[Rfam]
Rfam assigns this 75-nucleotide sequence from Pseudomonas oryzihabitans to the family "Pseudomonas sRNA P9".
This small RNA (sRNA) was computationally identified in the genome of the opportunistic pathogen Pseudomonas aeruginosa and its expression verified by northern blot analysis. P9 appears to be conserved in several Pseudomonas species in addition to Bordetella spp. In both Pseudomonas and Bordetella spp P9 appears to be located upstream of a predicted threonine dehydratase gene.
A search with the family's covariance model found it, with a score of 62 bits.
NCBI's taxonomy places the organism under Bacteria, Pseudomonadota, Pseudomonadales, Pseudomonadaceae, Pseudomonas.
By type it is a non-coding RNA gene.
For this family Rfam cites "Identification of 17 Pseudomonas aeruginosa sRNAs and prediction of sRNA-encoding genes in 10 diverse pathogens using the bioinformatic tool sRNAPredict2" (Livny et al., Nucleic Acids Res, 2006).
RNA sequence: AGCAUUAUUACCGCCAUUACCUGAUGGCGGGACAGCGUUAGCUGCGCAACCAGACCCGCCCAAGAGGCGGGUUUG
Numbered sequence: 001a002g003c004a005u006u007a008u009u010a011c012c013g014c015c016a017u018u019a020c021c022u023g024a025u026g027g028c029g030g031g032a033c034a035g036c037g038u039u040a041g042c043u044g045c046g047c048a049a050c051c052a053g054a055c056c057c058g059c060c061c062a063a064g065a066g067g068c069g070g071g072u073u074u075g
Base pairs, nucleotide, nucleotide: 011030012029013028014027015026016025017024052074053073054072055071056070057069058068059067060066